Fluoride riboswitch aptamer (crcB RNA motif): a 67-nucleotide RNA from Fenollaria massiliensis. Lineage of the source: Bacteria > Bacillati > Bacillota > Eubacteriales > Fenollaria.
Nucleotides: 067
Stems, first nucleotide, its partner, number of pairs: 010026004016058006040048003
Number, partner (000 for none) and nucleotide at each position: 001000u002000a003000a004000a005000u006000a007000c008000a009000u010026g011025g012024g013023a014000a015000u016058g017057a018056a019055g020054u021053u022000c023013u024012c025011c026010c027000a028000c029000g030000a031000a032000a033000u034000g035000a036000a037000a038000c039000c040048g041047c042046u043000a044000u045000a046042a047041g048040c049000u050000g051000a052000u053021g054020a055019c056018u057017u058016c059000u060000g061000u062000u063000u064000u065000u066000u067000a